[Rfam]
RNA sequence: AUGAUCAUGUGUGCAUGGUUUUCGUCUGUGACUGAUAGCAGCAUUUGUCUGUGUUUUGCAUUCAGAUCUUGCUAUCCACACAAACAUCAUGCAGCCAAAGAGUAAGUUGGGAUCAUAGUACUGGUCUAUAGUGUUGUCUCUUUGGACCUGUCUACCAUUGGCCAGCCUCCAAAUUCCCAGACACAA
Numbered sequence: 001a002u003g004a005u006c007a008u009g010u011g012u013g014c015a016u017g018g019u020u021u022u023c024g025u026c027u028g029u030g031a032c033u034g035a036u037a038g039c040a041g042c043a044u045u046u047g048u049c050u051g052u053g054u055u056u057u058g059c060a061u062u063c064a065g066a067u068c069u070u071g072c073u074a075u076c077c078a079c080a081c082a083a084a085c086a087u088c089a090u091g092c093a094g095c096c097a098a099a100g101a102g103u104a105a106g107u108u109g110g111g112a113u114c115a116u117a118g119u120a121c122u123g124g125u126c127u128a129u130a131g132u133g134u135u136g137u138c139u140c141u142u143u144g145g146a147c148c149u150g151u152c153u154a155c156c157a158u159u160g161g162c163c164a165g166c167c168u169c170c171a172a173a174u175u176c177c178c179a180g181a182c183a184c185a186a
Base pairs, nucleotide, nucleotide: 013092014091015090016089029082030081033078034077036074037073038072039071040070041069043067044066045065046064047063050060051059052058108179109178110177111176112175121165122164123163124162125161126160130159131158132157133156135150136149139146140145
RNA: Small nucleolar RNA SNORA23